[Rfam]
RNA: 6A RNA
RNA sequence: GUAAUUGGUCGUAGGGCGCGACCAACGGAAUCAAAAGAAAGCCCACUGAGA
Number, nucleotide and partner (000 for none) at each position: 001g000002u000003a000004a000005u000006u024007g023008g022009u021010c020011g019012u000013a000014g044015g043016g042017c041018g000019c011020g010021a009022c008023c007024a006025a000026c000027g000028g000029a000030a000031u000032c000033a000034a000035a000036a000037g000038a000039a000040a000041g017042c016043c015044c014045a000046c000047u000048g000049a000050g000051a000